[Rfam]
RNA: t44 RNA
Nucleotides: 086
Base pairs, nucleotide, nucleotide: 023076024075025074026073027072028071029070030069035067036066037065038064040061041060042059048057049056050055
Number, partner (000 for none) and nucleotide at each position: 001000a002000c003000a004000u005000u006000c007000a008000c009000u010000u011000u012000u013000u014000u015000a016000a017000c018000a019000c020000a021000c022000a023076c024075a025074c026073a027072c028071a029070u030069c031000g032000g033000c034000a035067c036066a037065u038064g039000c040061u041060c042059c043000a044000g045000g046000g047000u048057g049056c050055c051000u052000u053000c054000g055050g056049g057048u058000c059042g060041g061040a062000g063000u064038c065037a066036u067035g068000g069030g070029a071028u072027g073026u074025g075024u076023g077000g078000a079000g080000g081000c082000c083000u084000a085000a086000c